[Rfam]
RNA sequence: GGUCGCCUGUGGGGAAGGUACUCCUAGUACGAGAGGAACAGGGUACCAGGGCCUCUAGUCUACCGGUUGUCCGGUAGGGCAAUGCCGGGCAGCCACGCCCUAAGGGGUAAUCGCUGAAAGCAUCUAAGCGAGAACCCCUCCCCGAAAAGAGGCGGCCGUGUAGAUCUCCGAAAGGGGAUCUACGGGAGCCCACCCAAAAAACAUGGGGCUGAUGGGGUGGGGGUGUAAGUCCCGAGGGCGAAAGUCCGAGGGAUUCAGCCCGCCACUCCCAACGGGCAAGCC
Numbered sequence: 001g002g003u004c005g006c007c008u009g010u011g012g013g014g015a016a017g018g019u020a021c022u023c024c025u026a027g028u029a030c031g032a033g034a035g036g037a038a039c040a041g042g043g044u045a046c047c048a049g050g051g052c053c054u055c056u057a058g059u060c061u062a063c064c065g066g067u068u069g070u071c072c073g074g075u076a077g078g079g080c081a082a083u084g085c086c087g088g089g090c091a092g093c094c095a096c097g098c099c100c101u102a103a104g105g106g107g108u109a110a111u112c113g114c115u116g117a118a119a120g121c122a123u124c125u126a127a128g129c130g131a132g133a134a135c136c137c138c139u140c141c142c143c144g145a146a147a148a149g150a151g152g153c154g155g156c157c158g159u160g161u162a163g164a165u166c167u168c169c170g171a172a173a174g175g176g177g178a179u180c181u182a183c184g185g186g187a188g189c190c191c192a193c194c195c196a197a198a199a200a201a202c203a204u205g206g207g208g209c210u211g212a213u214g215g216g217g218u219g220g221g222g223g224u225g226u227a228a229g230u231c232c233c234g235a236g237g238g239c240g241a242a243a244g245u246c247c248g249a250g251g252g253a254u255u256c257a258g259c260c261c262g263c264c265a266c267u268c269c270c271a272a273c274g275g276g277c278a279a280g281c282c
Stems, first nucleotide, its partner, number of pairs: 001157008011143004017047007048101005056095001058093001063088005068081005104138003111131005188277004193207004213271003216267005221261003229254005236247003
Dot-bracket structure: ((((((((..((((..(((((((.................)))))))(((((...(.(....((((((((((....)))))..)))))....).).)))))..(((....(((((...........)))))....))).))))......))))))))..............................((((.((((.......)))).....(((((((((((.....(((((..(((......)))..)))))....))).))))).)))..)))).....
Rfam assigns this 282-nucleotide part of an RNA from Acidianus brierleyi to the family "Archaeal large subunit ribosomal RNA". NCBI's taxonomy places the organism under Archaea, Thermoproteati, Thermoprotei, Sulfolobaceae, Acidianus. A search with the family's covariance model found it, with a score of 2873 bits.